RNA: Rhizobiales sRNA Atu_C8
Organism: Rhizobium sp. NFR07
RNA sequence: GAAAAUCUCGACGGCACUUAUUGUGGUGGGAGCGCGCAUGGGCAGGACGGUGUAACCGUCCGGCGAUAGCCACCCAUGCGCGGAAAGACAGGCUCCCUCAAGGGGCCUUUUUUUAUGCCUUAA
Numbered sequence: 001g002a003a004a005a006u007c008u009c010g011a012c013g014g015c016a017c018u019u020a021u022u023g024u025g026g027u028g029g030g031a032g033c034g035c036g037c038a039u040g041g042g043c044a045g046g047a048c049g050g051u052g053u054a055a056c057c058g059u060c061c062g063g064c065g066a067u068a069g070c071c072a073c074c075c076a077u078g079c080g081c082g083g084a085a086a087g088a089c090a091g092g093c094u095c096c097c098u099c100a101a102g103g104g105g106c107c108u109u110u111u112u113u114u115a116u117g118c119c120u121u122a123a
Base pairs, nucleotide, nucleotide: 007028009026029119030118032116033082034081035080036079037078038077039076040075041074042073045061046060047059048058049057050056063070064069087109090108091107092106093105094104095103096102